The record is a 92-nucleotide sequence from Ladona fulva, which matches "mir-2765 microRNA precursor family" in Rfam. The family has 6 seed sequences and 109 matches in Rfam 15.1.

[Rfam]
RNA sequence: GUCGCGGCGAGGAGUGGUAACUCCACCACCGUUGGCUUGGCAACUAAAUCUGGAAGGCCAACGGUUGAGGAGUUCCUCGGCCUCGCUGUGAC
Numbered sequence: 001g002u003c004g005c006g007g008c009g010a011g012g013a014g015u016g017g018u019a020a021c022u023c024c025a026c027c028a029c030c031g032u033u034g035g036c037u038u039g040g041c042a043a044c045u046a047a048a049u050c051u052g053g054a055a056g057g058c059c060a061a062c063g064g065u066u067g068a069g070g071a072g073u074u075c076c077u078c079g080g081c082c083u084c085g086c087u088g089u090g091a092c
Base pairs, nucleotide, nucleotide: 003090004089005088006087007086008085009084010083011082012081016077017076019074020073021072022071023070026067029064030063031062032061033060034059035058036057037056